[Rfam]
This 88-nucleotide RNA sequence from Streptomyces sp. ATexAB-D23 belongs to the Rfam family "nrdJ RNA".
RNA sequence: CUUGUUCCGGGCGACGUAUGACGAAUACGGCGGCCGAAGCAUCAGACACACACUGUGCCCGGGGAAGUUCUCGGCACUUCAGGGCGUU
Numbered sequence: 001c002u003u004g005u006u007c008c009g010g011g012c013g014a015c016g017u018a019u020g021a022c023g024a025a026u027a028c029g030g031c032g033g034c035c036g037a038a039g040c041a042u043c044a045g046a047c048a049c050a051c052a053c054u055g056u057g058c059c060c061g062g063g064g065a066a067g068u069u070c071u072c073g074g075c076a077c078u079u080c081a082g083g084g085c086g087u088u
Base pairs, nucleotide, nucleotide: 003041004040005039006038008036009035010034011031012030015029016028017027018026019025055077056076057075058074059073061071062070

By type it is a small RNA.